Source information:
Shown here is a 72-nucleotide RNA from Drosophila albomicans, a member of the family "mir-6 microRNA precursor family". Rfam describes the family as follows. This family consists of the microRNA (miRNA) precursor mir-6 which appears to be Drosophila specific. Animal miRNAs are transcribed as ~70nt precursors and subsequently processed by the Dicer enzyme to give a ~22nt product. In this case the mature sequence comes from the 3' arm of the precursor. The extents of the hairpin precursors are not generally known and are estimated based on hairpin prediction. The literature on the family includes a 2002 paper in Genes Dev by Mourelatos et al., "miRNPs: a novel class of ribonucleoproteins containing numerous microRNAs". The family is grouped with related families in Rfam's "mir-6 clan".
RNA sequence: AACCAAAGGGAACUGUUGCUGCUGAUAUAUUUUAUUCAAUUAUCUAUAUCACAGUGGCUGUUCUUUUUGGUU
Number, nucleotide and partner (000 for none) at each position: 001a000002a000003c000004c069005a068006a000007a066008g065009g064010g063011a062012a061013c060014u000015g000016u057017u056018g055019c054020u053021g052022c000023u051024g050025a000026u048027a047028u046029a045030u000031u000032u000033u000034a000035u000036u000037c000038a000039a000040u000041u000042a000043u000044c000045u029046a028047u027048a026049u000050c024051a023052c021053a020054g019055u018056g017057g016058c000059u000060g013061u012062u011063c010064u009065u008066u007067u000068u005069g004070g000071u000072u000

Gene Ontology terms of the family: RISC complex and miRNA-mediated post-transcriptional gene silencing.